[Rfam]
RNA sequence: GCACUUCACAUUCAGGAAACUGCCGCUAUAUCGGUCCUUGCCGGUUUCGACCGGCUAUGGCGAUAAACUGCUGCGUGAAAUAGAUGCAACGGACCCGGGGGCAGUACCCGGCGGCUCCACCAGAAGCGGCGUUUCGGCGCAACUCCUGAUGGGGCCGAACCAGGAUCGACGUGUGUUGAAAGACGUAGUUUUUGCCCGGGCUGAGUAACCCGCAUAAGGCUCAAAAACCAUAAGUGCCAACGAUAACGAAGCACUCGCAAUCGCCGCAUAAUUGAUGGGCUAACGCCCUUCUUUUACUAGGCUAAAAAGCGCGGUUGGACCGAACCGGGCAACAGAAUCGGAUACC
Numbered sequence: 001g002c003a004c005u006u007c008a009c010a011u012u013c014a015g016g017a018a019a020c021u022g023c024c025g026c027u028a029u030a031u032c033g034g035u036c037c038u039u040g041c042c043g044g045u046u047u048c049g050a051c052c053g054g055c056u057a058u059g060g061c062g063a064u065a066a067a068c069u070g071c072u073g074c075g076u077g078a079a080a081u082a083g084a085u086g087c088a089a090c091g092g093a094c095c096c097g098g099g100g101g102c103a104g105u106a107c108c109c110g111g112c113g114g115c116u117c118c119a120c121c122a123g124a125a126g127c128g129g130c131g132u133u134u135c136g137g138c139g140c141a142a143c144u145c146c147u148g149a150u151g152g153g154g155c156c157g158a159a160c161c162a163g164g165a166u167c168g169a170c171g172u173g174u175g176u177u178g179a180a181a182g183a184c185g186u187a188g189u190u191u192u193u194g195c196c197c198g199g200g201c202u203g204a205g206u207a208a209c210c211c212g213c214a215u216a217a218g219g220c221u222c223a224a225a226a227a228c229c230a231u232a233a234g235u236g237c238c239a240a241c242g243a244u245a246a247c248g249a250a251g252c253a254c255u256c257g258c259a260a261u262c263g264c265c266g267c268a269u270a271a272u273u274g275a276u277g278g279g280c281u282a283a284c285g286c287c288c289u290u291c292u293u294u295u296a297c298u299a300g301g302c303u304a305a306a307a308a309g310c311g312c313g314g315u316u317g318g319a320c321c322g323a324a325c326c327g328g329g330c331a332a333c334a335g336a337a338u339c340g341g342a343u344a345c346c
Base pairs, nucleotide, nucleotide: 040055041054042053043052044051059196060195061194062193063192070189071188072187073186074185075184076183085175086174087173089172090171091170095111096110097109098108099107112157113156114155115154116153117152118151197212198211199210200209202223203222204221312327313326314325315324318343320341321340322339323338
Dot-bracket structure: .......................................(((((......)))))...(((((......(((((((........(((.(((...(((((.......)))))(((((((................................)))))))............)))))).......)))))))..)))))((((.[[[....))))........]]]........................................................................................((((..[.[[[[))))..........]]]].]...
The record is a 346-nucleotide RNA from Erythrobacter neustonensis, which matches "Alphaproteobacteria transfer-messenger RNA" in Rfam. Its family is annotated with RNA catabolic process in the Gene Ontology. Rfam describes the family as follows. Bacterial tmRNA, also known as 10Sa RNA or SsrA, is named for its dual tRNA and mRNA-like properties. Its role is to liberate the mRNA from a stalled ribosome. To accomplish this part of the tmRNA is used as a reading frame that ends in a translation stop signal. The broken mRNA is replaced in the ribosome by the tmRNA and translation of the tmRNA leads to addition of a proteolysis tag to the incomplete protein enabling recognition by a protease. Recently a number of permuted tmRNA genes have been found encoded in two parts. tmRNAs have been identified in eubacteria and some chloroplasts but are absent from archaeal and eukaryote nuclear genomes. The family's consensus secondary structure is taken from published work. Its Rfam clan is "tRNA clan".